This 133-nucleotide RNA from Pangasianodon hypophthalmus belongs to the Rfam family "Small nucleolar RNA SNORA47". Pairs were carried over by alignment from the consensus structure, which was predicted with WAR. Lineage of the source: Eukaryota > Actinopteri > Teleostei > Pangasiidae > Pangasianodon. A search with the family's covariance model found it, with a score of 55 bits. A reference for the family is Huttenhofer et al. (2001), "RNomics: an experimental approach that identifies 201 candidates for novel, small, non-messenger RNAs in mouse", EMBO J.
[Rfam]
RNA sequence: UGGAGGCUUGAGAAAGUUUGGACGUUGUUACAGUACCGCCAUAACUGGUUAUAACCUCCAAGACUAAAUCUCGAUCAAUGCAUUCAUGUCUGUCACUUCAGUUCAGAUUAUGCGCUAUGGUCGAGGACAUUUG
Numbered sequence: 001u002g003g004a005g006g007c008u009u010g011a012g013a014a015a016g017u018u019u020g021g022a023c024g025u026u027g028u029u030a031c032a033g034u035a036c037c038g039c040c041a042u043a044a045c046u047g048g049u050u051a052u053a054a055c056c057u058c059c060a061a062g063a064c065u066a067a068a069u070c071u072c073g074a075u076c077a078a079u080g081c082a083u084u085c086a087u088g089u090c091u092g093u094c095a096c097u098u099c100a101g102u103u104c105a106g107a108u109u110a111u112g113c114g115c116u117a118u119g120g121u122c123g124a125g126g127a128c129a130u131u132u133g
Stems, first nucleotide, its partner, number of pairs: 002059005015046004019041003024036002079125001081123001084120001086118003094112002098110001100109002